[Rfam]
RNA: Small nucleolar RNA Z159/U59
Organism: Salvia splendens
RNA sequence: GCAUCUGAUGAUGAUUAAAACAUAAACUUUCGUUCUUCUGAGAUUUUUUUGUGCGGAAGAUAUAUGGAGACCUGAACUGAAGAUGC
Numbered sequence: 001g002c003a004u005c006u007g008a009u010g011a012u013g014a015u016u017a018a019a020a021c022a023u024a025a026a027c028u029u030u031c032g033u034u035c036u037u038c039u040g041a042g043a044u045u046u047u048u049u050u051g052u053g054c055g056g057a058a059g060a061u062a063u064a065u066g067g068a069g070a071c072c073u074g075a076a077c078u079g080a081a082g083a084u085g086c
Base pairs, nucleotide, nucleotide: 003084004083005082006081